[Rfam]
Bacillaceae-1 RNA: a 68-nucleotide RNA sequence from Niallia endozanthoxylica. The family has 95 seed sequences and 5,721 matches in Rfam 15.1. It scores 63 bits against the family's covariance model. By type it is a small RNA. Pairs were carried over by alignment from the consensus structure, which is taken from published work.
RNA sequence: ACAAACGAGACGUCUACUAAAAACCGCCACGUCCUGUGGCGAACGUAGACGUCAGCACAUCCUGUGCA
Dot-bracket structure: ..........(((((((........(((((.....)))))....)))))))...((((.....)))).